[Rfam]
MIR2629 microRNA precursor family: a 72-nucleotide sequence from Medicago truncatula. Rfam links the family to the GO terms RISC complex and miRNA-mediated post-transcriptional gene silencing. The organism belongs to Medicago, within Eukaryota.
RNA sequence: UGCCAAAGUUUUCCUCGGCAGUUAACUGUAGCCGAUUCUUUAAAAUUUUGGCAGUUAACUGUCGAGGGGCAU
Numbered sequence: 001u002g003c004c005a006a007a008g009u010u011u012u013c014c015u016c017g018g019c020a021g022u023u024a025a026c027u028g029u030a031g032c033c034g035a036u037u038c039u040u041u042a043a044a045a046u047u048u049u050g051g052c053a054g055u056u057a058a059c060u061g062u063c064g065a066g067g068g069g070c071a072u
Base pairs, nucleotide, nucleotide: 012068013067015065016064017063018062019061020060021059022058023057024056025055026054027053028052029051
Dot-bracket structure: ...........((.(((((((((((((((.....................))))))))))))))).))....